[Rfam]
RNA: Bacterial RNase P class A
Organism: Helicobacter pylori
RNA sequence: GCAUUAGAAGAUGGUCGCUAUUUUAGAAUAGAGGAAAGUCCGGGCUACAUUAGACAAAAUUCCAUCUAACGGAUGGCUAGCGCAAGCUAAGGGAAAGUGCCACAGAAAGCAAACCGCCUUUUUAAGGUAAGGGUGAAAGGGUGGGGUAAGAGCCCACCAGAGCUAAAGCAAUUUAGCUUGUUUGGGCAAACCCAAUUUGUAGCAAGAAGCGCAUGGUAAGUCUAAAUUGAUACACGCUUCGCUUGAGGAAUAUUGCAAAAUAUUUCCCAGAUAAAUGGCCAUCCAUUGACAGAACCCGGCUUAUUCUAAUGCUCAA
Dot-bracket structure: ((((((((.(((((((.(((((....)))))....[[[.[[[[[((((........((((((((((.....)))))(((((....)))).)((...(((((............(((((((...)))))..)).......((((((.......))))))(((((((((....)))))))).)...)))..)))))))))))))...((((((.......................))))))......((((((((....))))))))..........)))))))...........]]]]]]]].).)))))))....
Numbered sequence: 001g002c003a004u005u006a007g008a009a010g011a012u013g014g015u016c017g018c019u020a021u022u023u024u025a026g027a028a029u030a031g032a033g034g035a036a037a038g039u040c041c042g043g044g045c046u047a048c049a050u051u052a053g054a055c056a057a058a059a060u061u062c063c064a065u066c067u068a069a070c071g072g073a074u075g076g077c078u079a080g081c082g083c084a085a086g087c088u089a090a091g092g093g094a095a096a097g098u099g100c101c102a103c104a105g106a107a108a109g110c111a112a113a114c115c116g117c118c119u120u121u122u123u124a125a126g127g128u129a130a131g132g133g134u135g136a137a138a139g140g141g142u143g144g145g146g147u148a149a150g151a152g153c154c155c156a157c158c159a160g161a162g163c164u165a166a167a168g169c170a171a172u173u174u175a176g177c178u179u180g181u182u183u184g185g186g187c188a189a190a191c192c193c194a195a196u197u198u199g200u201a202g203c204a205a206g207a208a209g210c211g212c213a214u215g216g217u218a219a220g221u222c223u224a225a226a227u228u229g230a231u232a233c234a235c236g237c238u239u240c241g242c243u244u245g246a247g248g249a250a251u252a253u254u255g256c257a258a259a260a261u262a263u264u265u266c267c268c269a270g271a272u273a274a275a276u277g278g279c280c281a282u283c284c285a286u287u288g289a290c291a292g293a294a295c296c297c298g299g300c301u302u303a304u305u306c307u308a309a310u311g312c313u314c315a316a
Stems, first nucleotide, its partner, number of pairs: 001312007008304001010283007018031005036302003040299005045202004057198005062076005077091001078089004092193002097191002099187003114132002116128005140158006159181001160179008206240006247266008